Shown here is a 94-nucleotide RNA from Paraburkholderia dinghuensis, a member of the family "Pseudomonas sRNA P9".
[Rfam]
RNA sequence: CUGAUUAUUAGCACCAUUCCAGGAAUGGUGGGUUAGCGCGCGUCGAUCGCAGUGUCACGCAGUUGUCAAUAACCCGCCCCAAGAGGCGGGUUUU
Number, nucleotide and partner (000 for none) at each position: 001c000002u000003g000004a000005u000006u000007a000008u000009u000010a000011g000012c030013a029014c028015c027016a026017u025018u000019c000020c000021a000022g000023g000024a000025a017026u016027g015028g014029u013030g012031g000032g000033u000034u000035a000036g000037c000038g000039c000040g000041c000042g000043u000044c000045g000046a000047u000048c000049g000050c000051a000052g000053u000054g000055u000056c000057a000058c000059g000060c000061a000062g000063u000064u000065g000066u000067c000068a000069a000070u000071a092072a091073c090074c089075c088076g087077c086078c085079c000080c000081a000082a000083g000084a000085g078086g077087c076088g075089g074090g073091u072092u071093u000094u000
The organism belongs to Paraburkholderia, within Bacteria. The family's consensus secondary structure was predicted with RNAalifold. By type it is a non-coding RNA gene. On this family, see Livny et al., Nucleic Acids Res 2006: "Identification of 17 Pseudomonas aeruginosa sRNAs and prediction of sRNA-encoding genes in 10 diverse pathogens using the bioinformatic tool sRNAPredict2". This small RNA (sRNA) was computationally identified in the genome of the opportunistic pathogen Pseudomonas aeruginosa and its expression verified by northern blot analysis. P9 appears to be conserved in several Pseudomonas species in addition to Bordetella spp. In both Pseudomonas and Bordetella spp P9 appears to be located upstream of a predicted threonine dehydratase gene. P9 has a predicted Rho independent terminator at the 3' end but the function of P9 is unknown. This sRNA also appears to be present in the Betaproteobacteria (Burkholderia and Ralstonia species).